[Rfam]
RNA sequence: CAAGCGUAAAGGCUUGUCAAAUAGCGUGUUAAUAGCUUUGCUUUUGGCCGGGCGAGUGGUUAGUGAAUC
Numbered sequence: 001c002a003a004g005c006g007u008a009a010a011g012g013c014u015u016g017u018c019a020a021a022u023a024g025c026g027u028g029u030u031a032a033u034a035g036c037u038u039u040g041c042u043u044u045u046g047g048c049c050g051g052g053c054g055a056g057u058g059g060u061u062a063g064u065g066a067a068u069c
Stems, first nucleotide, its partner, number of pairs: 001016005029063005035057003039054005